[Rfam]
Rfam assigns this 89-nucleotide RNA sequence from Bacillus manliponensis to the family "c-di-GMP-I riboswitch aptamer". Pairs were carried over by alignment from the consensus structure, which is taken from published work.
RNA sequence: CAUUGAGAAAGGCAAACUUGUGGAAACAUAAGGACGCAAAGCUAUAGGAGCCUAAGGUCAAGUCUAGACUCGGCUAGCCAGUUACCGUA
Numbered sequence: 001c002a003u004u005g006a007g008a009a010a011g012g013c014a015a016a017c018u019u020g021u022g023g024a025a026a027c028a029u030a031a032g033g034a035c036g037c038a039a040a041g042c043u044a045u046a047g048g049a050g051c052c053u054a055a056g057g058u059c060a061a062g063u064c065u066a067g068a069c070u071c072g073g074c075u076a077g078c079c080a081g082u083u084a085c086c087g088u089a
Stems, first nucleotide, its partner, number of pairs: 012037002017032006040083004047079002049075003057069003